[Rfam]
RNA: RAGATH-18 RNA
Organism: Gorillibacterium sp.
Nucleotides: 070
Stems, first nucleotide, its partner, number of pairs: 001068005009057005022052003030045003
Number, partner (000 for none) and nucleotide at each position: 001068c002067c003066u004065u005064u006000g007000g008000a009057g010056u011055g012054c013053u014000a015000c016000a017000u018000c019000a020000a021000a022052u023051g024050u025000u026000a027000g028000u029000a030045g031044a032043u033000a034000u035000a036000g037000a038000a039000a040000u041000a042000u043032a044031u045030c046000g047000a048000g049000a050024a051023c052022a053013g054012g055011c056010a057009c058000a059000g060000u061000g062000a063000a064005a065004a066003a067002g068001g069000a070000a